The record is a 145-nucleotide RNA sequence from Hordeum vulgare, which matches "small nucleolar RNA snoR137" in Rfam. Rfam classes the family as an H/ACA-box small nucleolar RNA.

RNA sequence: GUUGCUUCACAACUGGAAGGAUGCCUAUUGUUGACAGUUUGGCCAUCCUGUAGACGGAAGCAUAGAUGAGUGGAAACACAGGCCAGCAUUAAACAGCACGACGCGUUACUUCACAGUGUCGUGUUACCUGUCUUCUGGCACAUUU
Numbered sequence: 001g002u003u004g005c006u007u008c009a010c011a012a013c014u015g016g017a018a019g020g021a022u023g024c025c026u027a028u029u030g031u032u033g034a035c036a037g038u039u040u041g042g043c044c045a046u047c048c049u050g051u052a053g054a055c056g057g058a059a060g061c062a063u064a065g066a067u068g069a070g071u072g073g074a075a076a077c078a079c080a081g082g083c084c085a086g087c088a089u090u091a092a093a094c095a096g097c098a099c100g101a102c103g104c105g106u107u108a109c110u111u112c113a114c115a116g117u118g119u120c121g122u123g124u125u126a127c128c129u130g131u132c133u134u135c136u137g138g139c140a141c142a143u144u145u
Stems, first nucleotide, its partner, number of pairs: 003062006018049005023043003027039001082139005088133001095125003099121005
The literature on the family includes a 2009 paper in Nucleic Acids Res by Chen and Wu, "Mining small RNA sequencing data: a new approach to identify small nucleolar RNAs in Arabidopsis". Pairs were carried over by alignment from the consensus structure, which was predicted with RNAalifold.